The family of this 125-nucleotide RNA sequence from Marmota monax is "Small nucleolar RNA SNORA31". Rfam's curators write: ACA31 (SNORA31) belongs to the H/ACA class of snoRNAs which are thought to guide the sites of modification of uridines to pseudouridines. Rfam classes the family as an H/ACA-box small nucleolar RNA. The base pairs follow the family's consensus structure, which was predicted with RNAalifold. For this family Rfam cites "RNomics: an experimental approach that identifies 201 candidates for novel, small, non-messenger RNAs in mouse" (Huttenhofer et al., EMBO J, 2001). Taxonomically the source falls in Marmota (Eukaryota, Gnathostomata, Sarcopterygii, Euarchontoglires). The family has 5 seed sequences and 2,094 matches in Rfam 15.1.
[Rfam]
RNA sequence: CAACAUCCACUGAUAGACCUUGAACAAUUUGCUGUGUUCUUUUGGUUUGCACUAGGAUGCAAAAGAAAAUAAUCCCUGUGCUUUCUGUCUUUGUAACAUUCCAGAUUGAAUUGGGGAACACAUCU
Numbered sequence: 001c002a003a004c005a006u007c008c009a010c011u012g013a014u015a016g017a018c019c020u021u022g023a024a025c026a027a028u029u030u031g032c033u034g035u036g037u038u039c040u041u042u043u044g045g046u047u048u049g050c051a052c053u054a055g056g057a058u059g060c061a062a063a064a065g066a067a068a069a070u071a072a073u074c075c076c077u078g079u080g081c082u083u084u085c086u087g088u089c090u091u092u093g094u095a096a097c098a099u100u101c102c103a104g105a106u107u108g109a110a111u112u113g114g115g116g117a118a119c120a121c122a123u124c125u
Stems, first nucleotide, its partner, number of pairs: 004059005011051002014049006022039005028034001073117006081108001084105004